[Rfam]
About this RNA
A member of the RNA family "Small nucleolar RNA SNORD93" from Tinamus guttatus, 73 nucleotides long. The source organism's lineage runs through Eukaryota, Tetrapoda, Archelosauria, Tinamidae and Tinamus. Rfam classes the family as a C/D-box small nucleolar RNA. The family's consensus secondary structure was predicted with RNAalifold.
RNA sequence: UGGCCAGGGAUGAAAAUGAUAAUGCUGAUUACUUGCUAAUUGCUUGAUGGACUAAAGGAUUUUUCUGAGGCCA
Numbered sequence: 001u002g003g004c005c006a007g008g009g010a011u012g013a014a015a016a017u018g019a020u021a022a023u024g025c026u027g028a029u030u031a032c033u034u035g036c037u038a039a040u041u042g043c044u045u046g047a048u049g050g051a052c053u054a055a056a057g058g059a060u061u062u063u064u065c066u067g068a069g070g071c072c073a
Base pairs, nucleotide, nucleotide: 002072003071004070005069